[Rfam]
RNA sequence: CUGCGGGGAUGAUCGCCCUGAACUCUCUCUUGCUGACGGGCCGCUGGAGAAGCUUCCCAACGAGCUCUGAGCGGC
Numbered sequence: 001c002u003g004c005g006g007g008g009a010u011g012a013u014c015g016c017c018c019u020g021a022a023c024u025c026u027c028u029c030u031u032g033c034u035g036a037c038g039g040g041c042c043g044c045u046g047g048a049g050a051a052g053c054u055u056c057c058c059a060a061c062g063a064g065c066u067c068u069g070a071g072c073g074g075c
Stems, first nucleotide, its partner, number of pairs: 001074004
Dot-bracket structure: ((((..................................................................)))).